[Rfam]
Overview:
Shown here is a 127-nucleotide RNA from Rhinolophus ferrumequinum, a member of the family "Small nucleolar RNA SNORA25". By type it is an H/ACA-box small nucleolar RNA. ACA25 is a member of the H/ACA class of snoRNA that guide the sites of modification of uridines to pseudouridines. The organism belongs to Rhinolophus, within Eukaryota. Its family is annotated with RNA processing and nucleolus in the Gene Ontology.
RNA sequence: ACAUCAUUUCAAAGAGAGCUUGUGGGAUCAAAACCAGGAGCUCUUAAUGCUGUGACCAAAGAUUGAAAUUCUCCAUAGGAUGUAAUAGUCAUUCAAUAAUGCUACAUUGUCCUGAGGACAUAUAAGA
Numbered sequence: 001a002c003a004u005c006a007u008u009u010c011a012a013a014g015a016g017a018g019c020u021u022g023u024g025g026g027a028u029c030a031a032a033a034c035c036a037g038g039a040g041c042u043c044u045u046a047a048u049g050c051u052g053u054g055a056c057c058a059a060a061g062a063u064u065g066a067a068a069u070u071c072u073c074c075a076u077a078g079g080a081u082g083u084a085a086u087a088g089u090c091a092u093u094c095a096a097u098a099a100u101g102c103u104a105c106a107u108u109g110u111c112c113u114g115a116g117g118a119c120a121u122a123u124a125a126g127a
Stems, first nucleotide, its partner, number of pairs: 004055004014045008023037001026035001070120001072118003077113004086104003090101004